Record summary:
Rfam assigns this 80-nucleotide RNA sequence from Cucumis melo to the family "Small nucleolar RNA R160". Taxonomically the source falls in Cucumis (Eukaryota, Streptophyta, Spermatophyta, eudicotyledons).

RNA sequence: GGAAAAAUGAUGAAAACUUUGUUAUCUGAAAUUGAUGUGGAAAUUACAUUCAUCCUGGUCUUCAAAGUUCUCUGAUUGCU
Numbered sequence: 001g002g003a004a005a006a007a008u009g010a011u012g013a014a015a016a017c018u019u020u021g022u023u024a025u026c027u028g029a030a031a032u033u034g035a036u037g038u039g040g041a042a043a044u045u046a047c048a049u050u051c052a053u054c055c056u057g058g059u060c061u062u063c064a065a066a067g068u069u070c071u072c073u074g075a076u077u078g079c080u
Base pairs, nucleotide, nucleotide: 001080002079004077005076

Rfam 15.1 lists 799 matches to the family in 221 species.
Rfam's curators write: snoR160 is a C/D box small nucleolar RNA, which acts as a methylation guide for 25S ribosomal RNA in plants. snoR160 has been alternatively named snoZ270 in rice.